Rfam assigns this 124-nucleotide sequence from Erpetoichthys calabaricus to the family "Small nucleolar RNA SNORA77". The family's RNA type in Rfam is H/ACA-box small nucleolar RNA. ACA63 (SNORA77) is a member of the H/ACA class of snoRNAs that guide the sites of modification of uridines to pseudouridines. This snoRNA was identified by computational screening and its expression in mouse experimentally verified by Northern blot and primer extension analysis. ACA63 is proposed to guide the pseudouridylation of 18S rRNA U814. The literature on the family includes a 2006 paper in RNA by Schattner et al., "A computational screen for mammalian pseudouridylation guide H/ACA RNAs". A search with the family's covariance model found it, with a score of 54 bits. Lineage of the source: Eukaryota > Bilateria > Craniata > Cladistia > Erpetoichthys. The family's consensus secondary structure was predicted with RNAalifold. Gene Ontology terms of the family: RNA processing and nucleolus.

[Rfam]
RNA sequence: GCAGACUCACUCUGUGCUUGGCUGACUUCCAGCCUGGUGCUUUUUAUGUCUGCUAUAUCAAAUCCAGUAACUGCUGAGUUGAUUUACUUUCUGAUGAGUAAAUUCUGAUUACUGGGACAAUUGG
Numbered sequence: 001g002c003a004g005a006c007u008c009a010c011u012c013u014g015u016g017c018u019u020g021g022c023u024g025a026c027u028u029c030c031a032g033c034c035u036g037g038u039g040c041u042u043u044u045u046a047u048g049u050c051u052g053c054u055a056u057a058u059c060a061a062a063u064c065c066a067g068u069a070a071c072u073g074c075u076g077a078g079u080u081g082a083u084u085u086a087c088u089u090u091c092u093g094a095u096g097a098g099u100a101a102a103u104u105c106u107g108a109u110u111a112c113u114g115g116g117a118c119a120a121u122u123g124g
Base pairs, nucleotide, nucleotide: 001053002052003051004050005049006048014040015039016038017037018036020034022032023031024030064115065114066113067112068111069110070109074107076105077104078103080100081099083097084096